[Rfam]
RNA sequence: UUUUGUCAACACGGGAGUCCGGUGAGCCGGGCUGAGAGGAAGGUUCUCAACCUUCGACCGUCGAACCUGAUCUGGAUCAUGCCAGCGCAGGGAGGCAUCCAUCUCCUUAC
Dot-bracket structure: .........(((((..(((((......)))))......(((((((...)))))))..))))....((((..((((......))))..))))..)................
Numbered sequence: 001u002u003u004u005g006u007c008a009a010c011a012c013g014g015g016a017g018u019c020c021g022g023u024g025a026g027c028c029g030g031g032c033u034g035a036g037a038g039g040a041a042g043g044u045u046c047u048c049a050a051c052c053u054u055c056g057a058c059c060g061u062c063g064a065a066c067c068u069g070a071u072c073u074g075g076a077u078c079a080u081g082c083c084a085g086c087g088c089a090g091g092g093a094g095g096c097a098u099c100c101a102u103c104u105c106c107u108u109a110c
Stems, first nucleotide, its partner, number of pairs: 010094001011061004017032005039055007066091004072085004

The record is a 110-nucleotide RNA from Okibacterium fritillariae, which matches "TPP riboswitch aptamer (THI element)" in Rfam. A reference for the family is Rodionov et al. (2002), "Comparative genomics of thiamin biosynthesis in procaryotes. New genes and regulatory mechanisms", J Biol Chem. Its family is annotated with thiamine pyrophosphate binding in the Gene Ontology. Lineage of the source: Bacteria > Actinomycetes > Micrococcales > Microbacteriaceae > Okibacterium. The match comes from Rfam's covariance-model search (57 bits).